[Rfam]
Rfam assigns this 133-nucleotide RNA sequence from Eubacterium pyruvativorans to the family "Glycine riboswitch aptamer".

Nucleotides: 133
Base pairs, nucleotide, nucleotide: 005128006127007126008125009124011122012121019057020056021055022054059113060112061111062109063108066107067106068105072100073099074098075097076096077095
Number, partner (000 for none) and nucleotide at each position: 001000c002000u003000g004000u005128u006127c007126c008125g009124c010000a011122g012121g013000g014000a015000g016000a017000g018000c019057g020056c021055a022054u023000c024000g025000a026000a027000g028000g029000a030000a031000a032000g033000g034000g035000g036000g037000c038000g039000u040000a041000c042000c043000g044000u045000u046000c047000c048000c049000g050000c051000a052000g053000g054022a055021u056020g057019c058000c059113g060112c061111c062109g063108a064000a065000g066107a067106g068105g069000c070000a071000a072100g073099c074098c075097g076096a077095a078000u079000c080000c081000a082000g083000g084000u085000a086000g087000u088000c089000g090000g091000g092000g093000a094000u095077u096076u097075c098074g099073g100072u101000g102000a103000a104000a105068c106067u107066u108063u109062c110000a111061g112060g113059c114000a115000g116000a117000a118000g119000g120000a121012c122011c123000g124009g125008c126007g127006g128005a129000g130000c131000a132000g133000g
Its family is annotated with glycine biosynthetic process in the Gene Ontology. A search with the family's covariance model found it, with a score of 50 bits.